[Rfam]
This 68-nucleotide sequence from Pongo abelii belongs to the Rfam family "mir-4510 microRNA precursor family". The source organism's lineage runs through Eukaryota, Simiiformes, Hominidae, Ponginae and Pongo.

RNA sequence: UAGUGUGUAUGUGAGGGAGUAGGAUAUAUGGUUGUUAGACAACUACAAUCUUUUCUCACAACAGACAG
Dot-bracket structure: ..((.(((.(((((((((...((((...(((((((...)))))))..)))))))))))))))).))..